[Rfam]
RNA sequence: CCGGUGGGUCGUGACUGGCGCGUACGAGAUGGGCCCAACCAUCGGGAAGCGACCCCAGCGAUGCGAUGUGGAGCCGUGCGCCUGGGCCGUCGCG
Numbered sequence: 001c002c003g004g005u006g007g008g009u010c011g012u013g014a015c016u017g018g019c020g021c022g023u024a025c026g027a028g029a030u031g032g033g034c035c036c037a038a039c040c041a042u043c044g045g046g047a048a049g050c051g052a053c054c055c056c057a058g059c060g061a062u063g064c065g066a067u068g069u070g071g072a073g074c075c076g077u078g079c080g081c082c083u084g085g086g087c088c089g090u091c092g093c094g
Base pairs, nucleotide, nucleotide: 006055007054008053009052010051011050012049015046016045017082018081019080020079021078029042030041031040032039073087074086075085
Rfam assigns this 94-nucleotide sequence from Streptomyces zhaozhouensis to the family "ZMP/ZTP riboswitch aptamer (pfl RNA motif)".
Taxonomically the source falls in Streptomyces (Bacteria, Bacillati, Kitasatosporales, Streptomycetaceae).
The match comes from Rfam's covariance-model search (48 bits).
Its family is annotated with regulation of purine nucleotide biosynthetic process and one-carbon metabolic process in the Gene Ontology.